Notes:
The family of this 92-nucleotide RNA sequence from Slackia heliotrinireducens is "Selenocysteine transfer RNA".
RNA sequence: GGAGACGGAUGGGUCCUGGUGGGUCCCGCGGCCUUCAAAGCCGUUGUGAGGCGAGCAGACGUCUCGGGUGUGUUCGAUUCGCACACGUCUCC
Numbered sequence: 001g002g003a004g005a006c007g008g009a010u011g012g013g014u015c016c017u018g019g020u021g022g023g024u025c026c027c028g029c030g031g032c033c034u035u036c037a038a039a040g041c042c043g044u045u046g047u048g049a050g051g052c053g054a055g056c057a058g059a060c061g062u063c064u065c066g067g068g069u070g071u072g073u074u075c076g077a078u079u080c081g082c083a084c085a086c087g088u089c090u091c092c
Stems, first nucleotide, its partner, number of pairs: 001092007008084001011026006027046001028044005048065005069083004
The base pairs follow the family's consensus structure, which is taken from published work.